Record summary:
The record is a 117-nucleotide sequence from Brachypodium distachyon, which matches "MIR5070 microRNA precursor family" in Rfam. The base pairs follow the family's consensus structure, which was predicted with RNAalifold. Gene Ontology terms of the family: RISC complex and miRNA-mediated post-transcriptional gene silencing.

RNA sequence: CAGGGUACCCAUUGAUCUUUCUUAGUUCAACCAAAUGAACUAAAGUUUUAAAAUGACACAACUUUUUAAAAAAACUAGUUCAUUUGUCUGAACUAAGAAGGGUCAAAAGGUACCCUA
Numbered sequence: 001c002a003g004g005g006u007a008c009c010c011a012u013u014g015a016u017c018u019u020u021c022u023u024a025g026u027u028c029a030a031c032c033a034a035a036u037g038a039a040c041u042a043a044a045g046u047u048u049u050a051a052a053a054u055g056a057c058a059c060a061a062c063u064u065u066u067u068a069a070a071a072a073a074a075c076u077a078g079u080u081c082a083u084u085u086g087u088c089u090g091a092a093c094u095a096a097g098a099a100g101g102g103u104c105a106a107a108a109g110g111u112a113c114c115c116u117a
Base pairs, nucleotide, nucleotide: 002116003115004114005113006112007111008110009109012106013105014104015103016102017101018100019099020098021097022096023095024094025093026092027091028090029089032086033085034084035083036082037081038080039079040078041077042076
The match comes from Rfam's covariance-model search (106 bits).